radC RNA: a 152-nucleotide RNA sequence from Roseateles aquatilis. Rfam 15.1 lists 500 matches to the family in 142 species. Taxonomically the source falls in Roseateles (Bacteria, Pseudomonadota, Betaproteobacteria, Burkholderiales). Rfam classes the family as a cis-regulatory element. The base pairs follow the family's consensus structure, which is taken from published work.
RNA sequence: ACGCUGCUGCCAUGUUCCGCUGACACCCGUCAGCAGCAUGCCCAGGUAGCCAAGGUCUUCAAGGCUACGACGCGGUUCCGGCCGCGUUGAUCACCCCAGUUCGCUCUCGGCAUCCAUAGCGCGAACGUCCGUCGAGUCAUCGAUGGAGAUGC
Numbered sequence: 001a002c003g004c005u006g007c008u009g010c011c012a013u014g015u016u017c018c019g020c021u022g023a024c025a026c027c028c029g030u031c032a033g034c035a036g037c038a039u040g041c042c043c044a045g046g047u048a049g050c051c052a053a054g055g056u057c058u059u060c061a062a063g064g065c066u067a068c069g070a071c072g073c074g075g076u077u078c079c080g081g082c083c084g085c086g087u088u089g090a091u092c093a094c095c096c097c098a099g100u101u102c103g104c105u106c107u108c109g110g111c112a113u114c115c116a117u118a119g120c121g122c123g124a125a126c127g128u129c130c131g132u133c134g135a136g137u138c139a140u141c142g143a144u145g146g147a148g149a150u151g152c
Stems, first nucleotide, its partner, number of pairs: 011040004016035001019034006046068006054092004069088007121152003128147008